Annotation: Rfam assigns this 161-nucleotide RNA sequence from Rhodanobacter sp. C06 to the family "Proteobacterial sRNA sX4". Pairs were carried over by alignment from the consensus structure, which was predicted with RNAalifold. The literature on the family includes a 2011 paper in Nucleic Acids Res by Schmidtke et al., "Genome-wide transcriptome analysis of the plant pathogen Xanthomonas identifies sRNAs with putative virulence functions".
[Rfam]
RNA sequence: CACGCGACCCCUUUGGAGAGGUGGCAGAGUGGUCGAAUGUACCUGACUCGAAAUCAGGCGUACGUGUAAGCGUACCGUGGGUUCGAAUCCCACCCUCUCCGCCAGACACAAAAACGCCCCCUCGCGGGGCGUUUUUGUGUCUGGCGGAGAGGGUGGUGUGG
Numbered sequence: 001c002a003c004g005c006g007a008c009c010c011c012u013u014u015g016g017a018g019a020g021g022u023g024g025c026a027g028a029g030u031g032g033u034c035g036a037a038u039g040u041a042c043c044u045g046a047c048u049c050g051a052a053a054u055c056a057g058g059c060g061u062a063c064g065u066g067u068a069a070g071c072g073u074a075c076c077g078u079g080g081g082u083u084c085g086a087a088u089c090c091c092a093c094c095c096u097c098u099c100c101g102c103c104a105g106a107c108a109c110a111a112a113a114a115c116g117c118c119c120c121c122u123c124g125c126g127g128g129g130c131g132u133u134u135u136u137g138u139g140u141c142u143g144g145c146g147g148a149g150a151g152g153g154u155g156g157u158g159u160g161g
Stems, first nucleotide, its partner, number of pairs: 002078003007073001012028004029071002035067001037065004042058005090156006100131004